[Rfam]
About this RNA:
Shown here is a 134-nucleotide RNA sequence from Fukomys damarensis, a member of the family "Small nucleolar RNA SNORA1". ACA1 is a member of the H/ACA class of snoRNA that guide the sites of modification of uridines to pseudouridines.
RNA sequence: AGCCUCAUUCUUGAUUACAAUGGGCACUGUUGACUGGUGUCCCAAAUUGGGCACUGUGGCUUAAACUGAUACAAAGAUCAUGCUUCCACCACAGUAAACAACUAACAGUGGUGACAAAGAGACCUAUAACGUUU
Numbered sequence: 001a002g003c004c005u006c007a008u009u010c011u012u013g014a015u016u017a018c019a020a021u022g023g024g025c026a027c028u029g030u031u032g033a034c035u036g037g038u039g040u041c042c043c044a045a046a047u048u049g050g051g052c053a054c055u056g057u058g059g060c061u062u063a064a065a066c067u068g069a070u071a072c073a074a075a076g077a078u079c080a081u082g083c084u085u086c087c088a089c090c091a092c093a094g095u096a097a098a099c100a101a102c103u104a105a106c107a108g109u110g111g112u113g114a115c116a117a118a119g120a121g122a123c124c125u126a127u128a129a130c131g132u133u134u
Base pairs, nucleotide, nucleotide: 002060003059004058006056007055022042023041024040025039026038027037073127075125076124087113088112089111090110091109092108
Dot-bracket structure: .(((.((..............((((((.........))))))............)).)))............(.((..........((((((...............))))))..........)).).......
Source information:
The base pairs follow the family's consensus structure, which was predicted with PFOLD. The source organism's lineage runs through Eukaryota, Eumetazoa, Vertebrata, Amniota and Fukomys.